[Rfam]
RNA sequence: UAAAGUUUGACGACACUCUGGUGCCAAGUUUUGAUUAUCUUUGAUUUUCAAUUUAUUACGCUGUACUUGGUUCCUAUUUUGGUUUCAAACAAGAUUUACUGACUUUUACUCACUAAGAUAACCUACAUCUCCAUGGUUAUAUUGGUCCAUCUUUCAAUCGUCAUACAU
Numbered sequence: 001u002a003a004a005g006u007u008u009g010a011c012g013a014c015a016c017u018c019u020g021g022u023g024c025c026a027a028g029u030u031u032u033g034a035u036u037a038u039c040u041u042u043g044a045u046u047u048u049c050a051a052u053u054u055a056u057u058a059c060g061c062u063g064u065a066c067u068u069g070g071u072u073c074c075u076a077u078u079u080u081g082g083u084u085u086c087a088a089a090c091a092a093g094a095u096u097u098a099c100u101g102a103c104u105u106u107u108a109c110u111c112a113c114u115a116a117g118a119u120a121a122c123c124u125a126c127a128u129c130u131c132c133a134u135g136g137u138u139a140u141a142u143u144g145g146u147c148c149a150u151c152u153u154u155c156a157a158u159c160g161u162c163a164u165a166c167a168u
Stems, first nucleotide, its partner, number of pairs: 007088003020074002023071002026068004031051004101162003113145004118140006
Record summary
Shown here is a 168-nucleotide RNA from Naumovozyma castellii, a member of the family "Small nucleolar RNA snR80". Its family is annotated with RNA processing and nucleolus in the Gene Ontology. Taxonomically the source falls in Naumovozyma (Eukaryota, Fungi, Ascomycota, Saccharomycetales). The family's consensus secondary structure was predicted with WAR. On this family, see Schattner et al., Nucleic Acids Res 2004: "Genome-wide searching for pseudouridylation guide snoRNAs: analysis of the Saccharomyces cerevisiae genome". The family's RNA type in Rfam is H/ACA-box small nucleolar RNA.